transfer-messenger RNA: a 399-nucleotide sequence from Mesonia hippocampi. Rfam describes the family as follows. Bacterial tmRNA, also known as 10Sa RNA or SsrA, is named for its dual tRNA and mRNA-like properties. Its role is to liberate the mRNA from a stalled ribosome. To accomplish this part of the tmRNA is used as a reading frame that ends in a translation stop signal. The broken mRNA is replaced in the ribosome by the tmRNA and translation of the tmRNA leads to addition of a proteolysis tag to the incomplete protein enabling recognition by a protease. Recently a number of permuted tmRNA genes have been found encoded in two parts. tmRNAs have been identified in eubacteria and some chloroplasts but are absent from archaeal and eukaryote nuclear genomes. The family's consensus secondary structure is taken from published work. On this family, see Williams and Bartel, RNA 1996: "Phylogenetic analysis of tmRNA secondary structure".
[Rfam]
RNA sequence: GGGGUCGAUUUGGUUUUGACAGCAAGACCAAUUGGAUAGUAAGCAUACCGAGCGCUGGGAUAUAGCUCGUAAAUCUCAGGUUCUAUCUUUUUUAAACGGCGAAAAUAAUUACGCCUUAGCUGCAUAAUCUGAACUAUAGUAAGUUAUGCUUAAUCGCUACGAGGUAGCGAGCUGAGAUGCCUCUGGAAAGCCUUGAUUUAUGGCGUUCCGUUAAGAGGCACCGAUAAAAUAAAUCUAGGUGUUAUGAUGCCUUUAAGUAAUACCGAAUUUUUUAAGGCUAAGGAAAAAGUAGGAGGUUUUUUGCCGGCUUUUUCUCGAAAACCGAAGUGAAAACUAUGUAUGUAGAAAGCUAUUGAAUUGCUUGUUUGGACGGGAGUUCGAGUCUCCCCGACUCCACUA
Numbered sequence: 001g002g003g004g005u006c007g008a009u010u011u012g013g014u015u016u017u018g019a020c021a022g023c024a025a026g027a028c029c030a031a032u033u034g035g036a037u038a039g040u041a042a043g044c045a046u047a048c049c050g051a052g053c054g055c056u057g058g059g060a061u062a063u064a065g066c067u068c069g070u071a072a073a074u075c076u077c078a079g080g081u082u083c084u085a086u087c088u089u090u091u092u093u094a095a096a097c098g099g100c101g102a103a104a105a106u107a108a109u110u111a112c113g114c115c116u117u118a119g120c121u122g123c124a125u126a127a128u129c130u131g132a133a134c135u136a137u138a139g140u141a142a143g144u145u146a147u148g149c150u151u152a153a154u155c156g157c158u159a160c161g162a163g164g165u166a167g168c169g170a171g172c173u174g175a176g177a178u179g180c181c182u183c184u185g186g187a188a189a190g191c192c193u194u195g196a197u198u199u200a201u202g203g204c205g206u207u208c209c210g211u212u213a214a215g216a217g218g219c220a221c222c223g224a225u226a227a228a229a230u231a232a233a234u235c236u237a238g239g240u241g242u243u244a245u246g247a248u249g250c251c252u253u254u255a256a257g258u259a260a261u262a263c264c265g266a267a268u269u270u271u272u273u274a275a276g277g278c279u280a281a282g283g284a285a286a287a288a289g290u291a292g293g294a295g296g297u298u299u300u301u302u303g304c305c306g307g308c309u310u311u312u313u314c315u316c317g318a319a320a321a322c323c324g325a326a327g328u329g330a331a332a333a334c335u336a337u338g339u340a341u342g343u344a345g346a347a348a349g350c351u352a353u354u355g356a357a358u359u360g361c362u363u364g365u366u367u368g369g370a371c372g373g374g375a376g377u378u379c380g381a382g383u384c385u386c387c388c389c390g391a392c393u394c395c396a397c398u399a
Stems, first nucleotide, its partner, number of pairs: 001395007020368002022365005031358003035354006044342005049069005056085006150175003154170004178220006185209004190204003197231001199229001238264008249278005282315009292305002296334004300329001302327001372388005

Taxonomically the source falls in Mesonia (Bacteria, Bacteroidota, Flavobacteriia, Flavobacteriaceae).